[Rfam]
The family of this 130-nucleotide RNA from Pipistrellus kuhlii is "Small nucleolar RNA SNORA33".
The match comes from Rfam's covariance-model search (119 bits).
The organism belongs to Pipistrellus, within Eukaryota.
ACA33 is a member of the H/ACA class of snoRNA that guide the sites of modification of uridines to pseudouridines.
Its family is annotated with nucleolus and RNA processing in the Gene Ontology.
RNA sequence: AAGCCAGCCAGUGAGUCUGCUGACCUGAAUGUGCUCCUGCAGAAAUUCAGAGAAAGCUGGCAAUAGUCAAGCCAUGUUACAAGCCUUAAAGACACGGAAGUCAUGAAGGUCCCUGAAAACGGCUAUGAGA
Numbered sequence: 001a002a003g004c005c006a007g008c009c010a011g012u013g014a015g016u017c018u019g020c021u022g023a024c025c026u027g028a029a030u031g032u033g034c035u036c037c038u039g040c041a042g043a044a045a046u047u048c049a050g051a052g053a054a055a056g057c058u059g060g061c062a063a064u065a066g067u068c069a070a071g072c073c074a075u076g077u078u079a080c081a082a083g084c085c086u087u088a089a090a091g092a093c094a095c096g097g098a099a100g101u102c103a104u105g106a107a108g109g110u111c112c113c114u115g116a117a118a119a120c121g122g123c124u125a126u127g128a129g130a
Stems, first nucleotide, its partner, number of pairs: 003061005016043005071123003083110005089104001091102003